[Rfam]
Nucleotides: 097
Base pairs, nucleotide, nucleotide: 012037013036017032018031019030020029021028022027041090042089043088045087046086047085048082049081050080055076056075057074
Number, partner (000 for none) and nucleotide at each position: 001000c002000c003000a004000c005000c006000c007000u008000g009000a010000g011000g012037g013036c014000a015000a016000a017032c018031c019030c020029g021028u022027c023000g024000a025000a026000a027022g028021g029020c030019g031018g032017g033000g034000a035000c036013g037012c038000a039000a040000a041090g042089c043088u044000u045087c046086c047085g048082g049081c050080c051000u052000a053000c054000c055076g056075c057074g058000c059000g060000c061000u062000g063000c064000a065000a066000c067000c068000g069000c070000a071000g072000c073000c074057c075056g076055c077000c078000a079000u080050g081049g082048c083000a084000g085047c086046g087045g088043g089042g090041c091000c092000g093000c094000c095000a096000a097000g